[Rfam]
RNA sequence: AGUGGCUCAUUCACCUGGUUAAGACAGCCCUGCGAAAGCGGUCAAGUGCUUCUUAACAACCCGAAUGACGCACAAAACGGUGCCUGCCGUCCAAAAAAACCGAUAACAGACCUUCAGUGGCUUUAUCAAGCAUCGGACGCAACGUUGAGCCAGGCACCACCUC
Numbered sequence: 001a002g003u004g005g006c007u008c009a010u011u012c013a014c015c016u017g018g019u020u021a022a023g024a025c026a027g028c029c030c031u032g033c034g035a036a037a038g039c040g041g042u043c044a045a046g047u048g049c050u051u052c053u054u055a056a057c058a059a060c061c062c063g064a065a066u067g068a069c070g071c072a073c074a075a076a077a078c079g080g081u082g083c084c085u086g087c088c089g090u091c092c093a094a095a096a097a098a099a100c101c102g103a104u105a106a107c108a109g110a111c112c113u114u115c116a117g118u119g120g121c122u123u124u125a126u127c128a129a130g131c132a133u134c135g136g137a138c139g140c141a142a143c144g145u146u147g148a149g150c151c152a153g154g155c156a157c158c159a160c161c162u163c
Stems, first nucleotide, its partner, number of pairs: 005071002007068006019056006026050003079158007088139005102127005143149001
Dot-bracket structure: ....((((((((......((((((.(((...................)))))))))......)))))).)).......(((((((..(((((.........(((((................))))).......)))))...(.....)..))))))).....
Annotation: The record is a 163-nucleotide RNA sequence from Erwinia mallotivora, which matches "Glm Y RNA activator of glmS mRNA" in Rfam. The organism belongs to Erwinia, within Bacteria. It scores 118 bits against the family's covariance model. This family consists of a number of bacterial RNA genes of around 167 bases in length. The tke1 RNA gene is present in Escherichia coli, Shigella flexneri, Yersinia pestis and Salmonella species where it is found between the yfhK and purL genes. The function of this RNA is unknown. The base pairs follow the family's consensus structure, which is taken from published work.